[Rfam]
RNA sequence: CCCAUAUCCAGAGAGGUGGAGGGUCUGGCCCUAUGAAACCCGGCAACCGGCUUUUCUAUAAAGCAGCGGUGCCAAUUCCUGCAGUAUUUACUUACUGAAAGAUGUGAA
Numbered sequence: 001c002c003c004a005u006a007u008c009c010a011g012a013g014a015g016g017u018g019g020a021g022g023g024u025c026u027g028g029c030c031c032u033a034u035g036a037a038a039c040c041c042g043g044c045a046a047c048c049g050g051c052u053u054u055u056c057u058a059u060a061a062a063g064c065a066g067c068g069g070u071g072c073c074a075a076u077u078c079c080u081g082c083a084g085u086a087u088u089u090a091c092u093u094a095c096u097g098a099a100a101g102a103u104g105u106g107a108a
Base pairs, nucleotide, nucleotide: 003106004105005104006103007102008101013041015040016039017038021031022030023029025081027079028078042073043072044071045070047069048068050064051063052062077100082097083096084095085094086093